[Rfam]
RNA: Lysine riboswitch aptamer
Organism: Shewanella loihica
RNA sequence: UGAUACAGAAGAGGAGCGUUAACUAGGUAGUAAGCCCGAGGAGUCCAAACUCCGUUGACGGUUUAUGAGGGAGAUUAACGCCGAGGUAAAGAGAUGUUUGGUUUCAUCUAUUUAUCGGUCGACUGGGCUGAAUCCCAUCGAUUGUCACCUGUUUUUUGGUGGAGAGCUUCUGGUGGC
Numbered sequence: 001u002g003a004u005a006c007a008g009a010a011g012a013g014g015a016g017c018g019u020u021a022a023c024u025a026g027g028u029a030g031u032a033a034g035c036c037c038g039a040g041g042a043g044u045c046c047a048a049a050c051u052c053c054g055u056u057g058a059c060g061g062u063u064u065a066u067g068a069g070g071g072a073g074a075u076u077a078a079c080g081c082c083g084a085g086g087u088a089a090a091g092a093g094a095u096g097u098u099u100g101g102u103u104u105c106a107u108c109u110a111u112u113u114a115u116c117g118g119u120c121g122a123c124u125g126g127g128c129u130g131a132a133u134c135c136c137a138u139c140g141a142u143u144g145u146c147a148c149c150u151g152u153u154u155u156u157u158g159g160u161g162g163a164g165a166g167c168u169u170c171u172g173g174u175g176g177c
Stems, first nucleotide, its partner, number of pairs: 006172006016081007024073001030066007085116006092109005117143006124137004145162005151156001